The family of this 129-nucleotide RNA from Castor canadensis is "Small nucleolar RNA SNORA68". From the family's description: U68 is a member of the H/ACA class of small nucleolar RNAs (snoRNAs) which act as guides in the the modification of uridines to pseudouridines. A reference for the family is Ganot et al. (1997), "The family of box ACA small nucleolar RNAs is defined by an evolutionarily conserved secondary structure and ubiquitous sequence elements essential for RNA accumulation", Genes Dev. The match comes from Rfam's covariance-model search (96 bits). The base pairs follow the family's consensus structure, which was predicted with PFOLD.

[Rfam]
RNA sequence: AUUGUACCCCAACCCAAAACUUCUGCUUCUGUGUCAGGAGUUUAAACAGAGGUGCACAUGGAAGGUGAACCUUGUUGCCUUUGGGGGCUGUGGCGUGCCCCUCAAAGUGAAUGUAGAGGUUCUACAUCC
Dot-bracket structure: ..((((((.........((((((((.(.....).))))))))........))))))..........(((((((.....((((((((((........))))).)))))........))))))).......